[Rfam]
RNA sequence: CUAAUUCAUUUAACGUCAUCUCGUAUAUAUUUGGGAUAAGGCCUGAAUGUUUCUACCCGGAAACCUUAAUUUUCGGACUACGAGCAAGAUGAAUGGACGA
Numbered sequence: 001c002u003a004a005u006u007c008a009u010u011u012a013a014c015g016u017c018a019u020c021u022c023g024u025a026u027a028u029a030u031u032u033g034g035g036a037u038a039a040g041g042c043c044u045g046a047a048u049g050u051u052u053c054u055a056c057c058c059g060g061a062a063a064c065c066u067u068a069a070u071u072u073u074c075g076g077a078c079u080a081c082g083a084g085c086a087a088g089a090u091g092a093a094u095g096g097a098c099g100a
Base pairs, nucleotide, nucleotide: 020084021083022082023081024080025079029048030047031046032045033044034043035042057076058075059074060073061072062071063070
Rfam assigns this 100-nucleotide sequence from Bacillus sp. FJAT-26390 to the family "Purine riboswitch aptamer".
The family's consensus secondary structure is taken from published work.
NCBI's taxonomy places the organism under Bacteria, Bacillati, Bacilli, Caryophanales, Bacillus.